This 123-nucleotide sequence from Streptomyces tardus belongs to the Rfam family "Streptomyces sRNA scr5239". For this family Rfam cites "Identification of metE as a second target of the sRNA scr5239 in Streptomyces coelicolor" (Vockenhuber et al., PLoS One, 2015). Lineage of the source: Bacteria > Bacillati > Kitasatosporales > Streptomycetaceae > Streptomyces. The family's RNA type in Rfam is small RNA. The family's consensus secondary structure is taken from published work.

RNA sequence: CUUCCGCUCUCCCCGCACAGGAGGGCGGAACGAGAUCGCGGUCACUUUCUGCCCUGACGGUGCCGAGAUCUCCGAUCGCUCCGGGCUGCGGUGCCGGACGGGCUGAGGGUCCCGUUCAGGCGC
Numbered sequence: 001c002u003u004c005c006g007c008u009c010u011c012c013c014c015g016c017a018c019a020g021g022a023g024g025g026c027g028g029a030a031c032g033a034g035a036u037c038g039c040g041g042u043c044a045c046u047u048u049c050u051g052c053c054c055u056g057a058c059g060g061u062g063c064c065g066a067g068a069u070c071u072c073c074g075a076u077c078g079c080u081c082c083g084g085g086c087u088g089c090g091g092u093g094c095c096g097g098a099c100g101g102g103c104u105g106a107g108g109g110u111c112c113c114g115u116u117c118a119g120g121c122g123c
Stems, first nucleotide, its partner, number of pairs: 003029004008024005032072005039065003044061002046057002077093004082088002096117007